[Rfam]
RNA sequence: CCCCCGCGAGGGGGUCCCCCCCGCGGGGGCGCGCCGGUGUCGGGGGGGCCGGGCCGCCCCUCCCACGGCGCGACCGCUCCCCCACCCCCCCCGCCCCCGGCGACGGGGCGCGCGGGGGGGCGGGGCGGACUGUCCCCAGUGCGCCCCUUUUGGUAAGCAGAACUGGCGCUGCGGGAUGAACCGAACGCCGGGUUAAGGCGCCCGAUGCCGACGCUCAUCAGACCCCAGAAAAGGUGUUGGUUGAUAUAGACAGCAGGACGGUGGCCAUGGAAGUCGGAAUCCGCUAAGGAGUGUGUAACAACUCACCUGCCGAAUCAACUAGCCCUGAAAAUGGAUGGCGCUGGAGCGUCGGGCCCAUACCCGGCCGUCGCUGGCAGUCGGUGACGCGCGCGAGAGGGACGGGAGCGGGCGGGGGGGGCGCGGUGGUUUCCCUUCCCGGGGGGGCCGCCGCCUCCCCCCAACCCCCACCCCGCGGACGCUACGCCGCGACGAGUAGGAGGGCCGCUGCGGUGAGCCUUGAAGCCUAGGGCGCGGGCCCGGGUGGAGCCGCCGCAGGUGCAGAU
Numbered sequence: 001c002c003c004c005c006g007c008g009a010g011g012g013g014g015u016c017c018c019c020c021c022c023g024c025g026g027g028g029g030c031g032c033g034c035c036g037g038u039g040u041c042g043g044g045g046g047g048g049c050c051g052g053g054c055c056g057c058c059c060c061u062c063c064c065a066c067g068g069c070g071c072g073a074c075c076g077c078u079c080c081c082c083c084a085c086c087c088c089c090c091c092c093g094c095c096c097c098c099g100g101c102g103a104c105g106g107g108g109c110g111c112g113c114g115g116g117g118g119g120g121c122g123g124g125g126c127g128g129a130c131u132g133u134c135c136c137c138a139g140u141g142c143g144c145c146c147c148u149u150u151u152g153g154u155a156a157g158c159a160g161a162a163c164u165g166g167c168g169c170u171g172c173g174g175g176a177u178g179a180a181c182c183g184a185a186c187g188c189c190g191g192g193u194u195a196a197g198g199c200g201c202c203c204g205a206u207g208c209c210g211a212c213g214c215u216c217a218u219c220a221g222a223c224c225c226c227a228g229a230a231a232a233g234g235u236g237u238u239g240g241u242u243g244a245u246a247u248a249g250a251c252a253g254c255a256g257g258a259c260g261g262u263g264g265c266c267a268u269g270g271a272a273g274u275c276g277g278a279a280u281c282c283g284c285u286a287a288g289g290a291g292u293g294u295g296u297a298a299c300a301a302c303u304c305a306c307c308u309g310c311c312g313a314a315u316c317a318a319c320u321a322g323c324c325c326u327g328a329a330a331a332u333g334g335a336u337g338g339c340g341c342u343g344g345a346g347c348g349u350c351g352g353g354c355c356c357a358u359a360c361c362c363g364g365c366c367g368u369c370g371c372u373g374g375c376a377g378u379c380g381g382u383g384a385c386g387c388g389c390g391c392g393a394g395a396g397g398g399a400c401g402g403g404a405g406c407g408g409g410c411g412g413g414g415g416g417g418g419c420g421c422g423g424u425g426g427u428u429u430c431c432c433u434u435c436c437c438g439g440g441g442g443g444g445c446c447g448c449c450g451c452c453u454c455c456c457c458c459c460a461a462c463c464c465c466c467a468c469c470c471c472g473c474g475g476a477c478g479c480u481a482c483g484c485c486g487c488g489a490c491g492a493g494u495a496g497g498a499g500g501g502c503c504g505c506u507g508c509g510g511u512g513a514g515c516c517u518u519g520a521a522g523c524c525u526a527g528g529g530c531g532c533g534g535g536c537c538c539g540g541g542u543g544g545a546g547c548c549g550c551c552g553c554a555g556g557u558g559c560a561g562a563u
Base pairs, nucleotide, nucleotide: 001501002500003499004497005496010022011021012020013019014018025137026136027135028134029133030132031131033088094119095118096117097116098115100113101112102111143167144166145165148162149161150160151159152158172183173182174181187365188364189363190362191361193359197355198354199353206352208351212348213347214346232326233325234324236323237322238321239320240319241318242317243316244315245314253310254309255308256307257306259283260282261281265277266276284288289304293302294301366491367490368489369488370487371486373485374484375483503558505555506554507553508552509551510550511549512548514547515546522542523541528537529536530535
Eukaryotic large subunit ribosomal RNA: a 563-nucleotide part of an RNA from Felis catus. The source organism's lineage runs through Eukaryota, Opisthokonta, Deuterostomia, Felidae and Felis. It scores 2045 bits against the family's covariance model.